[Rfam]
This 85-nucleotide sequence belongs to the Rfam family "freshwater-2 RNA". Rfam classes the family as a cis-regulatory element. Rfam's curators put it in the seed alignment.

RNA sequence: CAACGCAAUUCUGCGUUUUAUGCGGUUUAACCCGCCGCGUAGCGACUAGAACUCGCAUCGGACUUCUUUAAGGAGAAACAAAAUG
Numbered sequence: 001c002a003a004c005g006c007a008a009u010u011c012u013g014c015g016u017u018u019u020a021u022g023c024g025g026u027u028u029a030a031c032c033c034g035c036c037g038c039g040u041a042g043c044g045a046c047u048a049g050a051a052c053u054c055g056c057a058u059c060g061g062a063c064u065u066c067u068u069u070a071a072g073g074a075g076a077a078a079c080a081a082a083a084u085g
Stems, first nucleotide, its partner, number of pairs: 002017005019041007042056004